Notes
The record is an 82-nucleotide RNA from Firmicutes bacterium AF36-19BH, which matches "Fluoride riboswitch aptamer (crcB RNA motif)" in Rfam.
RNA sequence: AUACUCUCCGGGAAUGAGGUUCUCCCGCGCCGUAUGGCGGAACCGCUUGAAAGAAUUUUAAGCUGAUGACUUCUGUGAUUUU
Numbered sequence: 001a002u003a004c005u006c007u008c009c010g011g012g013a014a015u016g017a018g019g020u021u022c023u024c025c026c027g028c029g030c031c032g033u034a035u036g037g038c039g040g041a042a043c044c045g046c047u048u049g050a051a052a053g054a055a056u057u058u059u060a061a062g063c064u065g066a067u068g069a070c071u072u073c074u075g076u077g078a079u080u081u082u
Base pairs, nucleotide, nucleotide: 010026011025012024013023016073017072018071019070020069021068045063046062047061048060049059050058051057052056
Dot-bracket structure: .........[[[[..((((((.]]]]..................((((((((...))))))))....)))))).........
Background
The organism belongs to Bacillota, within Bacteria.